[Rfam]
RNA: glmS glucosamine-6-phosphate activated ribozyme aptamer
Organism: Vagococcus acidifermentans
RNA sequence: AAAAUCGGAAUAGCGCCAGGCCUGGAAACAGGUGACGAGGAGAGAGCUUAUCGAACAACUCGGCGGGUAGCUCUAGGGACUGCACUCUACAGACUGAUAGUAAACCAUCGCUGAAAGGCGGUGACAAAGUAUGGGUCACGCAGAUAG
Dot-bracket structure: ...................(((((....))))).........(((((...((((.....))))......)))))((((......))))...((((.((.......(((((((....))))))).......)).))))..........
Numbered sequence: 001a002a003a004a005u006c007g008g009a010a011u012a013g014c015g016c017c018a019g020g021c022c023u024g025g026a027a028a029c030a031g032g033u034g035a036c037g038a039g040g041a042g043a044g045a046g047c048u049u050a051u052c053g054a055a056c057a058a059c060u061c062g063g064c065g066g067g068u069a070g071c072u073c074u075a076g077g078g079a080c081u082g083c084a085c086u087c088u089a090c091a092g093a094c095u096g097a098u099a100g101u102a103a104a105c106c107a108u109c110g111c112u113g114a115a116a117g118g119c120g121g122u123g124a125c126a127a128a129g130u131a132u133g134g135g136u137c138a139c140g141c142a143g144a145u146a147g
Stems, first nucleotide, its partner, number of pairs: 020033005043074005051063004075088004092137004097132002106123007